[Rfam]
Notes
This 94-nucleotide RNA sequence from Mediterraneibacter sp. gm002 belongs to the Rfam family "Selenocysteine transfer RNA". Its family is annotated with triplet codon-amino acid adaptor activity in the Gene Ontology. Clan: tRNA clan.

RNA sequence: GGGUGCGGCUGGGCAGCUGGUGUGUCCCCUGGUCUUCAAAACCAGUGUGAGGCGUGUGGAACGUCUUGGGUGGGUUCGAUUCCCACACGUAUCC
Numbered sequence: 001g002g003g004u005g006c007g008g009c010u011g012g013g014c015a016g017c018u019g020g021u022g023u024g025u026c027c028c029c030u031g032g033u034c035u036u037c038a039a040a041a042c043c044a045g046u047g048u049g050a051g052g053c054g055u056g057u058g059g060a061a062c063g064u065c066u067u068g069g070g071u072g073g074g075u076u077c078g079a080u081u082c083c084c085a086c087a088c089g090u091a092u093c094c
Base pairs, nucleotide, nucleotide: 001094002093003092004091005090006089007088008086011027012026013025014024015023017022029045030044031043032042033041048068049067050066051065052064071085072084073083074082